[Rfam]
RNA sequence: GAAGCUCCAACGGGAGCGACCUGAGCUCACAUGUGCACCCCACUAAUCAUAGAUUGGUUGAAAUCAUGUGGUUGUGAGGGUUCCUGUGUUCUCAGGUCGCCCCUGCUGGGCCUUC
Number, nucleotide and partner (000 for none) at each position: 001g000002a000003a000004g000005c000006u000007c109008c108009a000010a000011c105012g104013g103014g102015a000016g100017c099018g098019a097020c000021c000022u000023g093024a092025g091026c000027u000028c088029a087030c086031a085032u000033g000034u000035g000036c000037a000038c000039c000040c000041c000042a000043c000044u000045a000046a000047u000048c000049a000050u000051a000052g000053a000054u000055u000056g000057g000058u000059u000060g000061a000062a000063a000064u000065c000066a000067u000068g000069u000070g000071g000072u000073u000074g000075u000076g000077a000078g000079g000080g000081u000082u000083c000084c000085u031086g030087u029088g028089u000090u000091c025092u024093c023094a000095g000096g000097u019098c018099g017100c016101c000102c014103c013104u012105g011106c000107u000108g008109g007110g000111c000112c000113u000114u000115c000
The record is a 115-nucleotide sequence from Camphora micrantha, which matches "MIR398 microRNA precursor family" in Rfam.
Lineage of the source: Eukaryota > Spermatophyta > Magnoliopsida > Magnoliidae > Camphora.
A reference for the family is Jones-Rhoades and Bartel (2004), "Computational identification of plant microRNAs and their targets, including a stress-induced miRNA", Mol Cell.
Rfam 15.1 lists 627 matches to the family in 211 species.
The match comes from Rfam's covariance-model search (62 bits).
The family's consensus secondary structure was predicted with WAR.